Annotation:
The family of this 93-nucleotide RNA from Glycine max is "Small nucleolar RNA R64/Z200 family". Its family is annotated with nucleolus and RNA processing in the Gene Ontology. A reference for the family is Marker et al. (2002), "Experimental RNomics: identification of 140 candidates for small non-messenger RNAs in the plant Arabidopsis thaliana", Curr Biol. Rfam 15.1 lists 748 matches to the family in 228 species. The source organism's lineage runs through Eukaryota, Gunneridae, rosids, Fabaceae and Glycine subgen. Soja.
RNA sequence: GUUCUGUAGUGAUAAUUUCAUAAAUAAAUUCAUACGUCAAACUUCAGAUAUUUUCAAAUAAUUGAGAAUAAAAAUUUUGUUACUUAGGAGAAU
Dot-bracket structure: (((((.(.........................................((((....))))..........................).)))))